[Rfam]
RNA sequence: GAACAUCGCUGCACCCCUCCUCCUCCCAGGUGCAGCGACUACGGGCAGUAUCACCUCCUCCCGAUACUGCCCGGCCAAAGCGACACCCGCCGGAUCUCCUCCCCCGGCGGGUGUUGUAC
Numbered sequence: 001g002a003a004c005a006u007c008g009c010u011g012c013a014c015c016c017c018u019c020c021u022c023c024u025c026c027c028a029g030g031u032g033c034a035g036c037g038a039c040u041a042c043g044g045g046c047a048g049u050a051u052c053a054c055c056u057c058c059u060c061c062c063g064a065u066a067c068u069g070c071c072c073g074g075c076c077a078a079a080g081c082g083a084c085a086c087c088c089g090c091c092g093g094a095u096c097u098c099c100u101c102c103c104c105c106g107g108c109g110g111g112u113g114u115u116g117u118a119c
Base pairs, nucleotide, nucleotide: 007037008036009035010034011033012032013031014030015029042073043072044071045070046069047068048067049066050065051064083114084113085112086111087110088109089108090107091106092105093104

This 119-nucleotide sequence from Pseudaminobacter soli belongs to the Rfam family "Alphaproteobacterial ar14".
On this family, see del Val et al., RNA Biol 2012: "A survey of sRNA families in alpha-proteobacteria".
A search with the family's covariance model found it, with a score of 94 bits.
By type it is a small RNA.
Gene Ontology term of the family: biological process involved in symbiotic interaction.